The family of this 121-nucleotide RNA from Aureimonas altamirensis is "Rhizobiales sRNA Atu_C8". Taxonomically the source falls in Aureimonas (Bacteria, Pseudomonadati, Alphaproteobacteria, Hyphomicrobiales).
RNA sequence: GAAGAACAUCACGCUCAUUCUCGUAGGCAGGCGCACACGCGAGGCGGUUUAACGACCGUCCGGCGAAUGCCACGUGUGCGCGAAAGACAGGCCCCUCGAAGGGCCUUUUUUAUUGCCUGAA
Number, nucleotide and partner (000 for none) at each position: 001g000002a000003a000004g000005a000006a000007c000008a000009u023010c000011a000012c000013g000014c000015u000016c000017a000018u000019u000020c000021u000022c000023g009024u000025a000026g117027g116028c115029a114030g000031g081032c080033g079034c078035a077036c076037a075038c074039g073040c000041g000042a000043g060044g059045c058046g057047g056048u000049u000050u000051a000052a000053c000054g000055a000056c047057c046058g045059u044060c043061c000062g000063g070064c069065g000066a000067a000068u000069g064070c063071c000072a000073c039074g038075u037076g036077u035078g034079c033080g032081c031082g000083a000084a000085a000086g000087a107088c000089a106090g105091g104092c103093c102094c101095c000096u000097c000098g000099a000100a000101g094102g093103g092104c091105c090106u089107u087108u000109u000110u000111u000112a000113u000114u029115g028116c027117c026118u000119g000120a000121a000